[Rfam]
RNA sequence: UCACCGAAAAGGCAAAAUCCGGGGGACCGGAUGACGCAAAGCCACCUACCCAGAACGGGAAGAGGGGUUGUCGAA
Number, nucleotide and partner (000 for none) at each position: 001u000002c000003a000004c000005c000006g000007a000008a000009a000010a000011g000012g037013c036014a000015a000016a000017a032018u031019c030020c029021g028022g027023g000024g000025g000026a000027c022028c021029g020030g019031a018032u017033g000034a000035c000036g013037c012038a000039a000040a069041g068042c067043c066044a000045c065046c064047u063048a000049c059050c058051c000052a000053g000054a000055a000056c000057g000058g050059g049060a000061a000062g000063a047064g046065g045066g043067g042068u041069u040070g000071u000072c000073g000074a000075a000